[Rfam]
RNA sequence: AAAAAGGGCUUCUGCCGUGAUUGGCACAGGAGCAGCAGUAUGUGCUGUUGCUCUUGCGGAAUCGCUAUCAAGAGAUUUCGGAAGCAUAAUUUUUAACAUAGGAGCUGCUGGUGAUCACUUGUCCCGGCGCUCCG
Dot-bracket structure: .......((((((((((....)))))((((((((((((......))))))))))))(((((((..........))))))))))))................((((.(((((.(((.....))))))))))))..
A member of the RNA family "U11 spliceosomal RNA" from Echeneis naucrates, 134 nucleotides long.
It is annotated as a spliceosomal small nuclear RNA.
Taxonomically the source falls in Echeneis (Eukaryota, Metazoa, Teleostomi, Ctenosquamata).
Gene Ontology terms of the family: pre-mRNA 5'-splice site binding, mRNA 5'-splice site recognition and U11 snRNP.